[Rfam]
RNA sequence: UCGGAAAAAAGGCAUCCCCGUACGAAAGUCGGGUACGCAAAGCCACGGGUCUACGGCGCAUGUCACCAACAUUCGCUAUGGCAGCCGGGUUACCCUA
Numbered sequence: 001u002c003g004g005a006a007a008a009a010a011g012g013c014a015u016c017c018c019c020g021u022a023c024g025a026a027a028g029u030c031g032g033g034u035a036c037g038c039a040a041a042g043c044c045a046c047g048g049g050u051c052u053a054c055g056g057c058g059c060a061u062g063u064c065a066c067c068a069a070c071a072u073u074c075g076c077u078a079u080g081g082c083a084g085c086c087g088g089g090u091u092a093c094c095c096u097a
Base pairs, nucleotide, nucleotide: 012038013037017033018032019031020030022029023028041091042090043089044088046087047086048085049082050081051080056076057075058074
Dot-bracket structure: ...........((...((((.((....))))))...))..((((.((((((....(((...............)))...)))..)))))))......